A member of the RNA family "Bacterial large signal recognition particle RNA" from Kyrpidia spormannii, 266 nucleotides long.
RNA sequence: CCGCGCUAGGCGGGGAGGUAGCGGUGCCCUGAACCCGCAAUCCGCUAGAGCGGGGUUGAAGGCUUGUCGUGAGGUGUGCGUCAUGGAGGGUCGGCACCGGCCUCGGAGCGUCGACGACCGGGUCCUGCGCGGCGGGUCCUUCCGAACCGUGUCAGGUCCUGACGGAAGCAGCACUAAGGAAGAUCGCCCGGGUGCCGCAGGGCAGCCUGGUCCGAGCCACCCGCCGGUGAUACGCCUCGGUGCGCACAUCGAAGACAAGGGCGCGG
Numbered sequence: 001c002c003g004c005g006c007u008a009g010g011c012g013g014g015g016a017g018g019u020a021g022c023g024g025u026g027c028c029c030u031g032a033a034c035c036c037g038c039a040a041u042c043c044g045c046u047a048g049a050g051c052g053g054g055g056u057u058g059a060a061g062g063c064u065u066g067u068c069g070u071g072a073g074g075u076g077u078g079c080g081u082c083a084u085g086g087a088g089g090g091u092c093g094g095c096a097c098c099g100g101c102c103u104c105g106g107a108g109c110g111u112c113g114a115c116g117a118c119c120g121g122g123u124c125c126u127g128c129g130c131g132g133c134g135g136g137u138c139c140u141u142c143c144g145a146a147c148c149g150u151g152u153c154a155g156g157u158c159c160u161g162a163c164g165g166a167a168g169c170a171g172c173a174c175u176a177a178g179g180a181a182g183a184u185c186g187c188c189c190g191g192g193u194g195c196c197g198c199a200g201g202g203c204a205g206c207c208u209g210g211u212c213c214g215a216g217c218c219a220c221c222c223g224c225c226g227g228u229g230a231u232a233c234g235c236c237u238c239g240g241u242g243c244g245c246a247c248a249u250c251g252a253a254g255a256c257a258a259g260g261g262c263g264c265g266g
Stems, first nucleotide, its partner, number of pairs: 001266007009057003012030004017025001019023001034054005063259006070253001073250005079244002082242003086238004094231001096228006105221002108217002116212008124201006130192001133190005139182005149174004157166003
Dot-bracket structure: (((((((.(((((((.(.(...).).))))...(((((...........)))))))).....((((((.(..(((((.((.(((.((((....(.((((((...((.((......(((((((((((((((..(((((.(((((.....((((....(((....)))....))))...)))))...))))).)...))))))...))))))))...))..)).))))))..)...)))).))))).)))))..))))))))))))))

Overview
The source organism's lineage runs through Bacteria, Bacillati, Bacillota, Caryophanales and Kyrpidia. Rfam's curators write: The signal recognition particle (SRP) is a universally conserved ribonucleoprotein involved in the co-translational targeting of proteins to membranes.